[Rfam]
RNA sequence: AUAUUUUAGGCAAUGAUAUAAUUAGUGAGGUUCUAACCAAGGUGCAUCUAUUGCUAAUUGAAAACUACUUUCAAAUUCCUUCUUGGGCUUGGAUUCAGUUUAGGCGUUAGAGAGUUUCUGGAAGGAUUGGAAUU
Numbered sequence: 001a002u003a004u005u006u007u008a009g010g011c012a013a014u015g016a017u018a019u020a021a022u023u024a025g026u027g028a029g030g031u032u033c034u035a036a037c038c039a040a041g042g043u044g045c046a047u048c049u050a051u052u053g054c055u056a057a058u059u060g061a062a063a064a065c066u067a068c069u070u071u072c073a074a075a076u077u078c079c080u081u082c083u084u085g086g087g088c089u090u091g092g093a094u095u096c097a098g099u100u101u102a103g104g105c106g107u108u109a110g111a112g113a114g115u116u117u118c119u120g121g122a123a124g125g126a127u128u129g130g131a132a133u134u
Stems, first nucleotide, its partner, number of pairs: 015048003019044001021043003029038003080112004085107001087105008125134003
Dot-bracket structure: ..............(((.(.(((.....(((....)))..)))).)))...............................((((.(.((((((((...)))))))).).))))............(((....)))